[Rfam]
mir-2060 microRNA precursor family: an 87-nucleotide sequence from Branchiostoma belcheri.
RNA sequence: AAUUGUGUGGAUGGCGUUCAGCACCAAGGACAGGUAUGUUAUGUGUGUGCAGAUGGUGUUCAGUACCAGGGACAGGCAUGUUCACCU
Numbered sequence: 001a002a003u004u005g006u007g008u009g010g011a012u013g014g015c016g017u018u019c020a021g022c023a024c025c026a027a028g029g030a031c032a033g034g035u036a037u038g039u040u041a042u043g044u045g046u047g048u049g050c051a052g053a054u055g056g057u058g059u060u061c062a063g064u065a066c067c068a069g070g071g072a073c074a075g076g077c078a079u080g081u082u083c084a085c086c087u
Base pairs, nucleotide, nucleotide: 003075004074005073006072012068013067014066016064017063018062020060021059022058023057024056025055026054028048030046031045032044034042035041036040
It scores 64 bits against the family's covariance model. Pairs were carried over by alignment from the consensus structure, which was predicted with RNAalifold. Rfam links the family to the GO terms miRNA-mediated post-transcriptional gene silencing and RISC complex.